[Rfam]
RNA sequence: GGCGAUAAACGCGCCCGUAAUAAGCGGAUCGGACCCGGGGGCGGUACCCGGCGACUCCACCAUACAUCCCGUAUUGGGGGAUCAUGGGGUCGAAACAGGAUCGACGGACGUCUAAAGGGGUAAUGCUUUCGCUCGGUGAGUUACCACCGUUAUCGGUACAAAAUGUACAGUUGCCAAUAUCAACCGUGCUCCGGUCGCCGUCGCAGCGUAA
Numbered sequence: 001g002g003c004g005a006u007a008a009a010c011g012c013g014c015c016c017g018u019a020a021u022a023a024g025c026g027g028a029u030c031g032g033a034c035c036c037g038g039g040g041g042c043g044g045u046a047c048c049c050g051g052c053g054a055c056u057c058c059a060c061c062a063u064a065c066a067u068c069c070c071g072u073a074u075u076g077g078g079g080g081a082u083c084a085u086g087g088g089g090u091c092g093a094a095a096c097a098g099g100a101u102c103g104a105c106g107g108a109c110g111u112c113u114a115a116a117g118g119g120g121u122a123a124u125g126c127u128u129u130c131g132c133u134c135g136g137u138g139a140g141u142u143a144c145c146a147c148c149g150u151u152a153u154c155g156g157u158a159c160a161a162a163a164u165g166u167a168c169a170g171u172u173g174c175c176a177a178u179a180u181c182a183a184c185c186g187u188g189c190u191c192c193g194g195u196c197g198c199c200g201u202c203g204c205a206g207c208g209u210a211a
Stems, first nucleotide, its partner, number of pairs: 001133005013121004025110002029107003035051005052092007134149004
This 211-nucleotide RNA sequence from Jannaschia helgolandensis belongs to the Rfam family "permuted transfer-messenger RNA".
From the family's description: Bacterial tmRNA, also known as 10Sa RNA or SsrA, is named for its dual tRNA and mRNA-like properties. Its role is to liberate the mRNA from a stalled ribosome.
The literature on the family includes a 1996 paper in RNA by Williams and Bartel, "Phylogenetic analysis of tmRNA secondary structure".
The match comes from Rfam's covariance-model search (141 bits).
The family's RNA type in Rfam is non-coding RNA gene.
NCBI's taxonomy places the organism under Bacteria, Pseudomonadota, Rhodobacterales, Roseobacteraceae, Jannaschia.